[Rfam]
RNA: DUF805b RNA
Organism: Paraflavitalea soli
Nucleotides: 036
Base pairs, nucleotide, nucleotide: 002021003020004019005018010035011034012033
Number, partner (000 for none) and nucleotide at each position: 001000u002021a003020a004019g005018g006000g007000g008000a009000u010035g011034c012033c013000g014000a015000a016000a017000a018005c019004c020003u021002u022000g023000u024000c025000a026000a027000a028000g029000a030000g031000u032000a033012g034011g035010c036000a